[Rfam]
The record is a 74-nucleotide RNA sequence, which matches "tRNA" in Rfam. By type it is a transfer RNA. The base pairs follow the family's consensus structure, which is taken from published work. Rfam links the family to the GO term triplet codon-amino acid adaptor activity. From the family's description: Transfer RNA (tRNA) molecules are approximately 80 nucleotides in length.
RNA sequence: GCUAGCGUGGCAGAGCUCGGCAAAUGCAAAAGGCUUAAGCCCUUUAUCCAGAGGUUCAAAUCCUCUCCCUAGCU
Dot-bracket structure: (((((.(..(((............))).(((((.......)))))....(((((.......)))))).))))).